Shown here is a 213-nucleotide sequence from Ectocarpus siliculosus, a member of the family "MIR8622 microRNA precursor family". The match comes from Rfam's covariance-model search (198 bits). The family has 3 seed sequences and 93 matches in Rfam 15.1.
RNA sequence: CCGAAAUCUGCGCCGGAACCAAGCGGCAUCCAACAUUUGUCACAGCCAUGCUCACCGCCACGGGGAACGAAAACCCCUGAACGGAGGGGUGUCAGCAGUAGCUAGUGGCAUCAGCUACUGCUGUAAACCCGUAGUUCAGGAGAUUGGCGUUGGUGGCUGCGAGCAUGUCAGCGACAAAUGUUGGAUGCCGCUUGGUUCCAGCGCAGAUUUCGG
Numbered sequence: 001c002c003g004a005a006a007u008c009u010g011c012g013c014c015g016g017a018a019c020c021a022a023g024c025g026g027c028a029u030c031c032a033a034c035a036u037u038u039g040u041c042a043c044a045g046c047c048a049u050g051c052u053c054a055c056c057g058c059c060a061c062g063g064g065g066a067a068c069g070a071a072a073a074c075c076c077c078u079g080a081a082c083g084g085a086g087g088g089g090u091g092u093c094a095g096c097a098g099u100a101g102c103u104a105g106u107g108g109c110a111u112c113a114g115c116u117a118c119u120g121c122u123g124u125a126a127a128c129c130c131g132u133a134g135u136u137c138a139g140g141a142g143a144u145u146g147g148c149g150u151u152g153g154u155g156g157c158u159g160c161g162a163g164c165a166u167g168u169c170a171g172c173g174a175c176a177a178a179u180g181u182u183g184g185a186u187g188c189c190g191c192u193u194g195g196u197u198c199c200a201g202c203g204c205a206g207a208u209u210u211c212g213g
Stems, first nucleotide, its partner, number of pairs: 001213013015199019035179007043171001045169001047167007055159001057157005066151004071145002074142001076140007086130003093123011